[Rfam]
RNA sequence: UGAGUCGGUCGGGCGGCCGCGUCGGGCGUGGCCCGUCGAGGAAAGUCCGGACUCCACAGGGCACGGUGGUUGCCAACGGCAACCCGGGGCGACCCGCGGGAAAGUGCCACAGAAAGCAGACCGCCCGGUUCGACCGGGUAAGGGUGAAACGGUGGUGUAAGAGACCACCAGCACCCCGGGUGACCGGGGUGGCUCGGUAAACCCCACCGGGAGCAAGGUCAAGAGGGCGCUACGGCGCCUGCGCAGGCGUUCGAGGGCGGCCCGCCCGAGUCUGCGGGUAGACCGCUGGAGCCUGCCGGCGACGGCAGGCCGAGAUGGAUGGUCGCCGAAUGGGAGCACCGCAAGGUCCCCAGGAACAGGAUCCGGCUUACAGAUCGACUCAUCCG
Numbered sequence: 001u002g003a004g005u006c007g008g009u010c011g012g013g014c015g016g017c018c019g020c021g022u023c024g025g026g027c028g029u030g031g032c033c034c035g036u037c038g039a040g041g042a043a044a045g046u047c048c049g050g051a052c053u054c055c056a057c058a059g060g061g062c063a064c065g066g067u068g069g070u071u072g073c074c075a076a077c078g079g080c081a082a083c084c085c086g087g088g089g090c091g092a093c094c095c096g097c098g099g100g101a102a103a104g105u106g107c108c109a110c111a112g113a114a115a116g117c118a119g120a121c122c123g124c125c126c127g128g129u130u131c132g133a134c135c136g137g138g139u140a141a142g143g144g145u146g147a148a149a150c151g152g153u154g155g156u157g158u159a160a161g162a163g164a165c166c167a168c169c170a171g172c173a174c175c176c177c178g179g180g181u182g183a184c185c186g187g188g189g190u191g192g193c194u195c196g197g198u199a200a201a202c203c204c205c206a207c208c209g210g211g212a213g214c215a216a217g218g219u220c221a222a223g224a225g226g227g228c229g230c231u232a233c234g235g236c237g238c239c240u241g242c243g244c245a246g247g248c249g250u251u252c253g254a255g256g257g258c259g260g261c262c263c264g265c266c267c268g269a270g271u272c273u274g275c276g277g278g279u280a281g282a283c284c285g286c287u288g289g290a291g292c293c294u295g296c297c298g299g300c301g302a303c304g305g306c307a308g309g310c311c312g313a314g315a316u317g318g319a320u321g322g323u324c325g326c327c328g329a330a331u332g333g334g335a336g337c338a339c340c341g342c343a344a345g346g347u348c349c350c351c352a353g354g355a356a357c358a359g360g361a362u363c364c365g366g367c368u369u370a371c372a373g374a375u376c377g378a379c380u381c382a383u384c385c386g
Stems, first nucleotide, its partner, number of pairs: 001382010011371001012327007020038002023035005043369003047366005052213004059263004064209005069083005084098001085096004099204002104202002106198003121143002123139007151169006171193001172191008217284004243275006255267004291310008
Dot-bracket structure: ((((((((((((((((((.((.(((((...))))).))....[[[.[[[[[((((...[[[[.((((((((((.....)))))(((((....)))).)((...(((((............(((((((((...)))))))..)).......((((((.......)))))).(((((((((....)))))))).)..)))..)))))))))))))...((((......................((((((......((((.]]]]))))..)))))).....))))......((((((((....))))))))..........)))))))..................................]]]]]]]].).))))))))))....
Rfam assigns this 386-nucleotide sequence from Allosaccharopolyspora coralli to the family "Bacterial RNase P class A". The family's RNA type in Rfam is ribozyme. Pairs were carried over by alignment from the consensus structure, which is taken from published work. The source organism's lineage runs through Bacteria, Bacillati, Actinomycetes, Pseudonocardiales and Allosaccharopolyspora. Rfam links the family to the GO terms ribonuclease P activity, tRNA processing and dimeric ribonuclease P complex. Ribonuclease P (RNase P) is a ubiquitous endoribonuclease, found in archaea, bacteria and eukarya as well as chloroplasts and mitochondria.